[Rfam]
The record is a 180-nucleotide RNA sequence from Pseudomonas panipatensis, which matches "Pseudomonas sRNA P1" in Rfam.
RNA sequence: ACCCGUGCUUGUUAUGUGUUAUGGGUUGCGACCGAGCUUAGCGCUGUUCAUUUUUUUACACAAUAGCUCUGUAAAAAAUUGCACACGCCUUACUGAACAUCGCGCCAGCCAUGGCUUUCAGCGAGUCGAAAGCGACCUGAAACGCCCCAAAAACGGCCCCAUUGCACCAACAGGGAGCAA
Numbered sequence: 001a002c003c004c005g006u007g008c009u010u011g012u013u014a015u016g017u018g019u020u021a022u023g024g025g026u027u028g029c030g031a032c033c034g035a036g037c038u039u040a041g042c043g044c045u046g047u048u049c050a051u052u053u054u055u056u057u058a059c060a061c062a063a064u065a066g067c068u069c070u071g072u073a074a075a076a077a078a079u080u081g082c083a084c085a086c087g088c089c090u091u092a093c094u095g096a097a098c099a100u101c102g103c104g105c106c107a108g109c110c111a112u113g114g115c116u117u118u119c120a121g122c123g124a125g126u127c128g129a130a131a132g133c134g135a136c137c138u139g140a141a142a143c144g145c146c147c148c149a150a151a152a153a154c155g156g157c158c159c160c161a162u163u164g165c166a167c168c169a170a171c172a173g174g175g176a177g178c179a180a
Stems, first nucleotide, its partner, number of pairs: 023101002027097001034093001036091001041088003046084002052078008162180004167175001
About the family: This small RNA (sRNA) was computationally identified in the genome of the opportunistic pathogen Pseudomonas aeruginosa and its expression verified by northern blot analysis. Taxonomically the source falls in Pseudomonas (Bacteria, Pseudomonadati, Pseudomonadota, Pseudomonadales). The match comes from Rfam's covariance-model search (104 bits). For this family Rfam cites "Identification of 17 Pseudomonas aeruginosa sRNAs and prediction of sRNA-encoding genes in 10 diverse pathogens using the bioinformatic tool sRNAPredict2" (Livny et al., Nucleic Acids Res, 2006).